The record is a 136-nucleotide RNA sequence from Paenibacillus albidus, which matches "pan motif" in Rfam. Pairs were carried over by alignment from the consensus structure, which is taken from published work. It scores 38 bits against the family's covariance model.
RNA sequence: GAGGCGGUAUCAGACAGUUGAACUGCACUCGGGUUAACUGAAUGUCAUUUUGAUAGCUUUUAUGGGAAUUGCCUUCAUAACUGCAUUGACGGUUACGUUGGAUUCUGCUCUGAGCCGUAAGGACCGAGACAGAAGG
Dot-bracket structure: ((((((((.((........))))))).)))..........................................................................((((((.(..((....)).).))).)))....